[Rfam]
RNA sequence: AUAACAACAAUAAGGGUCAUCGAAAGGUGACCCCUAUGUGUCACUCGACACCCAUUUGGUUUGGCCGCCGACAAGUUGAGUGAGACUCGCUGGUGUUACGUAUAGCUGGCUGUUACCUUGAUUCCUUACUGUCACGUUUAACAGUUUUUUGUAACCAAUGCUCAAGCUUGCUUGAGCAUUUUUCU
Dot-bracket structure: .............((((((((....)))))))).......(((((((((......(((((......)))))...)))))))))...........((((((.......((((((((.......................))))))))...))))))...((((((((....)))))))).......
The family of this 185-nucleotide RNA from Vibrio gelatinilyticus is "MicX Vibrio cholerae sRNA". On this family, see Davis and Waldor, Mol Microbiol 2007: "RNase E-dependent processing stabilizes MicX, a Vibrio cholerae sRNA". The base pairs follow the family's consensus structure, which was predicted with CMfinder.